[Rfam]
RNA: Group II catalytic intron D1-D4-4
Organism: Gemmatimonas sp.
RNA sequence: CAGUGGGUGUGAGUCCCGCCUGGGUAGGCACCGGAGCGCCCAGUAGCAGACCCCUGUCGUCGGGGGAGACCUUGGCGGCCGAGCGGGGUGUCGAGAGCCUCUUCGGAGGGAGCAAGAUCGCGGGCCGUAGCUUCA
Numbered sequence: 001c002a003g004u005g006g007g008u009g010u011g012a013g014u015c016c017c018g019c020c021u022g023g024g025u026a027g028g029c030a031c032c033g034g035a036g037c038g039c040c041c042a043g044u045a046g047c048a049g050a051c052c053c054c055u056g057u058c059g060u061c062g063g064g065g066g067a068g069a070c071c072u073u074g075g076c077g078g079c080c081g082a083g084c085g086g087g088g089u090g091u092c093g094a095g096a097g098c099c100u101c102u103u104c105g106g107a108g109g110g111a112g113c114a115a116g117a118u119c120g121c122g123g124g125c126c127g128u129a130g131c132u133u134c135a
Base pairs, nucleotide, nucleotide: 020043021042022041023040024039050089051088052087053086054085056079057078058077059076060075064071065070098109099108100107101106112128113127